[Rfam]
RNA sequence: GACCCAAGUUUGAAGUAGAGUAGAUUAGAAUGAUCAUCUGACUCUACUAAACUACUCUACUUCGAGUGUGUGCUC
Numbered sequence: 001g002a003c004c005c006a007a008g009u010u011u012g013a014a015g016u017a018g019a020g021u022a023g024a025u026u027a028g029a030a031u032g033a034u035c036a037u038c039u040g041a042c043u044c045u046a047c048u049a050a051a052c053u054a055c056u057c058u059a060c061u062u063c064g065a066g067u068g069u070g071u072g073c074u075c
Base pairs, nucleotide, nucleotide: 001074003072005070006069008067009066011064012063013062014061015060016059017058018057019056020055021054022053023052025050026049027048028047030045032043034041035040

A member of the RNA family "mir-5928 microRNA precursor family" from Haemonchus placei, 75 nucleotides long. Rfam links the family to the GO terms RISC complex and miRNA-mediated post-transcriptional gene silencing. The family's consensus secondary structure was predicted with RNAalifold.